About this RNA:
Shown here is a 102-nucleotide RNA sequence from Anaerorhabdus furcosa, a member of the family "Purine riboswitch aptamer". The family's consensus secondary structure is taken from published work. Lineage of the source: Bacteria > Bacillati > Erysipelotrichales > Erysipelotrichaceae > Anaerorhabdus. Gene Ontology term of the family: purine nucleobase biosynthetic process. A search with the family's covariance model found it, with a score of 69 bits.

RNA sequence: AUAAAUAAGUAAUGUCUACCACGUAUAAGCUUUUCGAUAGGGGAGAAGCGUAUCUACAAGAAGACCUUAAAUCUUCUAGCUACGAUGGAAUACUUUUUUAAG
Numbered sequence: 001a002u003a004a005a006u007a008a009g010u011a012a013u014g015u016c017u018a019c020c021a022c023g024u025a026u027a028a029g030c031u032u033u034u035c036g037a038u039a040g041g042g043g044a045g046a047a048g049c050g051u052a053u054c055u056a057c058a059a060g061a062a063g064a065c066c067u068u069a070a071a072u073c074u075u076c077u078a079g080c081u082a083c084g085a086u087g088g089a090a091u092a093c094u095u096u097u098u099u100a101a102g
Stems, first nucleotide, its partner, number of pairs: 019087001022084004029049007059077006